[Rfam]
RNA sequence: GGGUUGGCAUUGUAGCUCAGCAGUUCCUUCACGGGCUCUCUGAUUUAUCAGACUAAUCCUCUCGGGGGUUCAAAACCUGCGGGCGAUAUCCAGCCUUUUU
Numbered sequence: 001g002g003g004u005u006g007g008c009a010u011u012g013u014a015g016c017u018c019a020g021c022a023g024u025u026c027c028u029u030c031a032c033g034g035g036c037u038c039u040c041u042g043a044u045u046u047a048u049c050a051g052a053c054u055a056a057u058c059c060u061c062u063c064g065g066g067g068g069u070u071c072a073a074a075a076c077c078u079g080c081g082g083g084c085g086a087u088a089u090c091c092a093g094c095c096u097u098u099u100u
Base pairs, nucleotide, nucleotide: 002095003094004093005092006091007090015084016083017082018081020080021079022078023077028074029073
RNA: Vault RNA
Organism: Xenopus tropicalis